[Rfam]
RNA sequence: GAAUUUUUGAUUAACGCCUGCUAAAAAGCAGGCCAUUAGGAAG
Numbered sequence: 001g002a003a004u005u006u007u008u009g010a011u012u013a014a015c016g017c018c019u020g021c022u023a024a025a026a027a028g029c030a031g032g033c034c035a036u037u038a039g040g041a042a043g
Stems, first nucleotide, its partner, number of pairs: 016033007
RNA: nuoG RNA
Organism: Arsenophonus nasoniae